[Rfam]
RNA sequence: AAAAUCAUGAAUGGGACGGUAUCUCAAUUCCGUCUUGUCCUUGUGAGGUCGAGAGGUAUAAUAAUGAUGGCGAGAUAUCGUUUCAGUCGUCAUUUUUCUCCAUUGACGAUUCGAUUGUUGCUCGUCCACAU
Numbered sequence: 001a002a003a004a005u006c007a008u009g010a011a012u013g014g015g016a017c018g019g020u021a022u023c024u025c026a027a028u029u030c031c032g033u034c035u036u037g038u039c040c041u042u043g044u045g046a047g048g049u050c051g052a053g054a055g056g057u058a059u060a061a062u063a064a065u066g067a068u069g070g071c072g073a074g075a076u077a078u079c080g081u082u083u084c085a086g087u088c089g090u091c092a093u094u095u096u097u098c099u100c101c102a103u104u105g106a107c108g109a110u111u112c113g114a115u116u117g118u119u120g121c122u123c124g125u126c127c128a129c130a131u
Stems, first nucleotide, its partner, number of pairs: 006043002009040001011038001015034005069127002071124004077115004086110007094102001